The family of this 96-nucleotide RNA from Hevea brasiliensis is "MIR535 microRNA precursor family". The family's consensus secondary structure was predicted with RNAalifold. The match comes from Rfam's covariance-model search (69 bits). Rfam links the family to the GO terms miRNA-mediated post-transcriptional gene silencing and RISC complex.

[Rfam]
RNA sequence: CACAUUUUAUGACAACGUUAGAGAGCACGCAUGUAAACAGUCAUGUCACUAGCAUGAAAUGUUGACAAACGUGCUCUCUCUCGUUGUCAACCAAUG
Numbered sequence: 001c002a003c004a005u006u007u008u009a010u011g012a013c014a015a016c017g018u019u020a021g022a023g024a025g026c027a028c029g030c031a032u033g034u035a036a037a038c039a040g041u042c043a044u045g046u047c048a049c050u051a052g053c054a055u056g057a058a059a060u061g062u063u064g065a066c067a068a069a070c071g072u073g074c075u076c077u078c079u080c081u082c083g084u085u086g087u088c089a090a091c092c093a094a095u096g
Stems, first nucleotide, its partner, number of pairs: 010089005016083002020079002023076001025074005032067003
Overview
A reference for the family is Zeng et al. (2010), "Conservation and divergence of microRNAs and their functions in Euphorbiaceous plants", Nucleic Acids Res. Rfam 15.1 lists 544 matches to the family in 108 species.